[Rfam]
A member of the RNA family "c-di-GMP-I riboswitch aptamer" from Sporanaerobacter acetigenes, 88 nucleotides long. Pairs were carried over by alignment from the consensus structure, which is taken from published work. It scores 63 bits against the family's covariance model. Gene Ontology term of the family: cyclic-di-GMP binding.

RNA sequence: UAGGUUUCAGGGCAAAACUAUCGAAAGGUAGUGACGCAAAGCCAGAGUCUAAAGCUAUCCUUGAUAGCAUGACCGUUCGGCUGCAUAA
Numbered sequence: 001u002a003g004g005u006u007u008c009a010g011g012g013c014a015a016a017a018c019u020a021u022c023g024a025a026a027g028g029u030a031g032u033g034a035c036g037c038a039a040a041g042c043c044a045g046a047g048u049c050u051a052a053a054g055c056u057a058u059c060c061u062u063g064a065u066a067g068c069a070u071g072a073c074c075g076u077u078c079g080g081c082u083g084c085a086u087a088a
Base pairs, nucleotide, nucleotide: 012037013036017032018031019030020029021028022027040082041081042080043079045078046077047073048072049071054068055067056066057065